[Rfam]
Nucleotides: 075
Stems, first nucleotide, its partner, number of pairs: 014026004031071001038065002043060003047056003
Number, partner (000 for none) and nucleotide at each position: 001000c002000u003000u004000g005000a006000g007000c008000g009000a010000g011000c012000c013000g014026a015025g016024c017023c018000a019000g020000a021000g022000c023017g024016g025015c026014u027000g028000c029000c030000c031071c032000u033000c034000g035000g036000g037000g038065c039064g040000g041000u042000c043060c044059u045058g046000g047056c048055c049054g050000u051000a052000c053000g054049u055048g056047g057000c058045c059044a060043g061000c062000a063000g064039c065038g066000c067000c068000c069000c070000c071031g072000c073000c074000u075000c